This 46-nucleotide RNA sequence from Cyclobacterium marinum belongs to the Rfam family "Acido-Lenti-1 RNA". Lineage of the source: Bacteria > Pseudomonadati > Bacteroidota > Cytophagales > Cyclobacterium marinum. The family's RNA type in Rfam is small RNA.
RNA sequence: CCAAGAGCUGACACUCUUGGCUGAGAUAUUUCGCCCCUAUGGGGCU
Number, nucleotide and partner (000 for none) at each position: 001c020002c019003a018004a017005g016006a015007g014008c000009u000010g000011a000012c000013a000014c007015u006016c005017u004018u003019g002020g001021c000022u000023g000024a000025g000026a000027u000028a000029u000030u000031u000032c000033g045034c044035c043036c042037c041038u000039a000040u000041g037042g036043g035044g034045c033046u000